This 106-nucleotide RNA from Daucus carota belongs to the Rfam family "Small nucleolar RNA Z279/snoR105/snoR108". The organism belongs to Daucus carota, within Eukaryota. This family includes the plant snoRNAs known as Z279, snoR105 and snoR108. Pairs were carried over by alignment from the consensus structure, which was predicted with PFOLD. Its family is annotated with RNA processing and nucleolus in the Gene Ontology. Rfam 15.1 lists 906 matches to the family in 223 species.

RNA sequence: GGGAUAUGAUGAGUGGUCAUAACUCGCAGUCUUAUAUGCGAGAUGAGUGUUCGCUCCAAGCCUGGUUACGACAAUGGGGCACUCUCUUCUGUACCCAUCUGAUUCC
Numbered sequence: 001g002g003g004a005u006a007u008g009a010u011g012a013g014u015g016g017u018c019a020u021a022a023c024u025c026g027c028a029g030u031c032u033u034a035u036a037u038g039c040g041a042g043a044u045g046a047g048u049g050u051u052c053g054c055u056c057c058a059a060g061c062c063u064g065g066u067u068a069c070g071a072c073a074a075u076g077g078g079g080c081a082c083u084c085u086c087u088u089c090u091g092u093a094c095c096c097a098u099c100u101g102a103u104u105c106c
Stems, first nucleotide, its partner, number of pairs: 001106004014097003023042005045084007063077001065075002